RNA sequence: AAAACUUCAUGGACAACAUCCUGAUCGAGACGGGGUCGGGGAAACCACCGGCACCAGCCGGACGGGACGAACAUCCACCGCGAUGUUCCGACUCCCUGGGGUGAAGCCGGACGAACCACGUCCGCCGGGCAUCCCUACCGCCCGAACCCGACAGCUAACCCCGACGGCGAAUCACCGAAAUCAA
Number, nucleotide and partner (000 for none) at each position: 001a000002a000003a000004a000005c034006u033007u000008c000009a000010u000011g000012g000013a000014c000015a000016a000017c000018a000019u000020c000021c000022u000023g000024a000025u000026c000027g000028a000029g000030a000031c000032g000033g006034g005035g000036u164037c163038g162039g161040g160041g159042a000043a000044a000045c000046c098047a097048c000049c000050g000051g000052c000053a000054c000055c000056a000057g000058c000059c000060g000061g000062a000063c000064g000065g000066g000067a000068c000069g000070a000071a000072c000073a000074u000075c000076c000077a000078c000079c000080g000081c000082g000083a000084u000085g000086u000087u000088c000089c000090g000091a000092c000093u000094c000095c000096c000097u047098g046099g149100g148101g147102u000103g000104a000105a000106g000107c000108c124109g123110g122111a121112c000113g000114a000115a000116c000117c000118a000119c000120g000121u111122c110123c109124g108125c000126c000127g143128g142129g141130c140131a000132u000133c000134c000135c000136u000137a000138c000139c000140g130141c129142c128143c127144g000145a000146a000147c101148c100149c099150g000151a000152c000153a000154g000155c000156u000157a000158a000159c041160c040161c039162c038163g037164a036165c000166g000167g000168c000169g000170a000171a000172u000173c000174a000175c000176c000177g000178a000179a000180a000181u000182c000183a000184a000
Rfam assigns this 184-nucleotide RNA from Corynebacterium freneyi to the family "c-di-AMP riboswitch aptamer (ydaO/yuaA leader)". Pairs were carried over by alignment from the consensus structure.